[Rfam]
A member of the RNA family "Makes More Granules Regulator RNA (mmgR)" from Candidatus Defluviicoccus seviourii, 71 nucleotides long. About the family: SuhB later renamed mmgR (makes more granules regulator) was a putative non-coding RNA found multiple times in the Agrobacterium tumefaciens genome and related alpha-proteobacteria. The source organism's lineage runs through Bacteria, Pseudomonadati, Pseudomonadota, Alphaproteobacteria and Defluviicoccus.
RNA sequence: GGUGGCCGCACUUCUUGGACGUUUCCUCCCAAAACUCGGGCCGCGCCAUGCGGCCCUUUUUUUUGUUCUUG
Numbered sequence: 001g002g003u004g005g006c007c008g009c010a011c012u013u014c015u016u017g018g019a020c021g022u023u024u025c026c027u028c029c030c031a032a033a034a035c036u037c038g039g040g041c042c043g044c045g046c047c048a049u050g051c052g053g054c055c056c057u058u059u060u061u062u063u064u065g066u067u068c069u070u071g
Base pairs, nucleotide, nucleotide: 008020011017038056039055040054041053042052043051044050045049
Background:
Rfam classes the family as a small RNA. Pairs were carried over by alignment from the consensus structure.